[Rfam]
RNA sequence: AUAACUUAAUUAUUAUUUGCAGAUAUAUCGCUGGGAAAUGGCCAGCAGUCUCUACCACGCACCAAAAGCCGUGACUAUCCGUAAAUGCUGUAAAUCG
Numbered sequence: 001a002u003a004a005c006u007u008a009a010u011u012a013u014u015a016u017u018u019g020c021a022g023a024u025a026u027a028u029c030g031c032u033g034g035g036a037a038a039u040g041g042c043c044a045g046c047a048g049u050c051u052c053u054a055c056c057a058c059g060c061a062c063c064a065a066a067a068g069c070c071g072u073g074a075c076u077a078u079c080c081g082u083a084a085a086u087g088c089u090g091u092a093a094a095u096c097g
Base pairs, nucleotide, nucleotide: 018083019082020081022079023078024077025076030046031045032044033043034042056073057072058071059070

Purine riboswitch aptamer: a 97-nucleotide RNA sequence from Leuconostocaceae bacterium R-53105. NCBI's taxonomy places the organism under Bacteria, Bacillati, Bacillota, Bacilli, Lactobacillaceae. The family's consensus secondary structure is taken from published work.